Shown here is a 200-nucleotide RNA, a member of the family "RT-2 RNA". It is one of the family's seed sequences. The family's RNA type in Rfam is small RNA.

RNA sequence: GCCGCCCCCUAAUGGCGGUGAACUGCAACCCUGAUGCGUCCGGGCGGACGCUUCUUGCAUGGCGGCAAUGUUGUGCGUUCCUGCCGUUCCAUGCCCGGUGACGCUAUGUAGCAUAACAGCGCACACCCCCGGGCUUUGAUGUCUUUGUGCCGAUAAGCCCGGGGAUGCUAUACAGGGUUCUUUAAGGAAACGGAGAUGAA
Numbered sequence: 001g002c003c004g005c006c007c008c009c010u011a012a013u014g015g016c017g018g019u020g021a022a023c024u025g026c027a028a029c030c031c032u033g034a035u036g037c038g039u040c041c042g043g044g045c046g047g048a049c050g051c052u053u054c055u056u057g058c059a060u061g062g063c064g065g066c067a068a069u070g071u072u073g074u075g076c077g078u079u080c081c082u083g084c085c086g087u088u089c090c091a092u093g094c095c096c097g098g099u100g101a102c103g104c105u106a107u108g109u110a111g112c113a114u115a116a117c118a119g120c121g122c123a124c125a126c127c128c129c130c131g132g133g134c135u136u137u138g139a140u141g142u143c144u145u146u147g148u149g150c151c152g153a154u155a156a157g158c159c160c161g162g163g164g165a166u167g168c169u170a171u172a173c174a175g176g177g178u179u180c181u182u183u184a185a186g187g188a189a190a191c192g193g194a195g196a197u198g199a200a
Stems, first nucleotide, its partner, number of pairs: 001019006027179007035172001036104005041097005050058002061085005067079005108171007